[Rfam]
Purine riboswitch aptamer: a 101-nucleotide RNA sequence from Cohnella fermenti. The base pairs follow the family's consensus structure, which is taken from published work. Lineage of the source: Bacteria > Bacillati > Caryophanales > Paenibacillaceae > Cohnella. The match comes from Rfam's covariance-model search (56 bits).
RNA sequence: AUGUCGGAAUUGAAGAUUUGCCGUAUAAUCCCGGGAAUAGGCUUGGGAGUUUCUACGAGGUCACCGCAAAUGAUCCGGCUACGGACAGCGACAUCGGAUAA
Dot-bracket structure: .................(..(((((...(((((((......)))))))..........(((((.......)))))....)))))..)..............